[Rfam]
RNA: Group II catalytic intron D1-D4-4
RNA sequence: UAGCCGGUGUAAGACCGGUCGCGCGGACUGCCCGUCCGAGCGCGUAGUGAAUCGGACACGCAGCGUGGGCGACCCGCUGAGUGCAAGCUCCGAGGAUGAUGUCUCCGCCGCCUGCGGGUGGGACCCAUCAGGGAGGCUAACGAGUGACCGGGCCGUAGCAUCA
Numbered sequence: 001u002a003g004c005c006g007g008u009g010u011a012a013g014a015c016c017g018g019u020c021g022c023g024c025g026g027a028c029u030g031c032c033c034g035u036c037c038g039a040g041c042g043c044g045u046a047g048u049g050a051a052u053c054g055g056a057c058a059c060g061c062a063g064c065g066u067g068g069g070c071g072a073c074c075c076g077c078u079g080a081g082u083g084c085a086a087g088c089u090c091c092g093a094g095g096a097u098g099a100u101g102u103c104u105c106c107g108c109c110g111c112c113u114g115c116g117g118g119u120g121g122g123a124c125c126c127a128u129c130a131g132g133g134a135g136g137c138u139a140a141c142g143a144g145u146g147a148c149c150g151g152g153c154c155g156u157a158g159c160a161u162c163a
Stems, first nucleotide, its partner, number of pairs: 020044005052093005057083003061079002067074002101137006140156003